[Rfam]
RNA sequence: CAAGACAUAGCUUAAACAAAGCAUCUAGUUUACACCUAGAAGAUUCCAUACACUAUGAAUGUCUUGA
Numbered sequence: 001c002a003a004g005a006c007a008u009a010g011c012u013u014a015a016a017c018a019a020a021g022c023a024u025c026u027a028g029u030u031u032a033c034a035c036c037u038a039g040a041a042g043a044u045u046c047c048a049u050a051c052a053c054u055a056u057g058a059a060u061g062u063c064u065u066g067a
Stems, first nucleotide, its partner, number of pairs: 001066007010022004024040005045059001047057003
RNA: tRNA